[Rfam]
RNA sequence: CAACCCGACGCGGGAGAGUCGCUCAGGCGACACCGAAGGAGCAAUCCUCCCCGAUAAUCUCUCAGGUCCUCGUACCGCCUCGGUUGG
Numbered sequence: 001c002a003a004c005c006c007g008a009c010g011c012g013g014g015a016g017a018g019u020c021g022c023u024c025a026g027g028c029g030a031c032a033c034c035g036a037a038g039g040a041g042c043a044a045u046c047c048u049c050c051c052c053g054a055u056a057a058u059c060u061c062u063c064a065g066g067u068c069c070u071c072g073u074a075c076c077g078c079c080u081c082g083g084u085u086g087g
Stems, first nucleotide, its partner, number of pairs: 006082003010078004019030004032067003035063002039061003045054002
Shown here is an 87-nucleotide RNA from Herbiconiux salviae, a member of the family "Glycine riboswitch aptamer". The organism belongs to Herbiconiux, within Bacteria.